[Rfam]
RNA sequence: CGGACAGGGGGGUUCCCGUCGACCGGCGGGGCCUGUCCGGCGGCCACGCGAGGCGCGUGGUCCAGUGGUUGUCGCUCGGGGGUGAUCGUCG
Numbered sequence: 001c002g003g004a005c006a007g008g009g010g011g012g013u014u015c016c017c018g019u020c021g022a023c024c025g026g027c028g029g030g031g032c033c034u035g036u037c038c039g040g041c042g043g044c045c046a047c048g049c050g051a052g053g054c055g056c057g058u059g060g061u062c063c064a065g066u067g068g069u070u071g072u073c074g075c076u077c078g079g080g081g082g083u084g085a086u087c088g089u090c091g
Base pairs, nucleotide, nucleotide: 001039002038003037004036005035006034007033008032014031015030016029017028018027019026020025042062043061044060045059046058047057048056049055
Dot-bracket structure: ((((((((.....(((((((....)))))))))))))))..((((((((.....)))))))).............................
The record is a 91-nucleotide sequence from Streptomyces niveus, which matches "che1 RNA" in Rfam. It is annotated as a small RNA.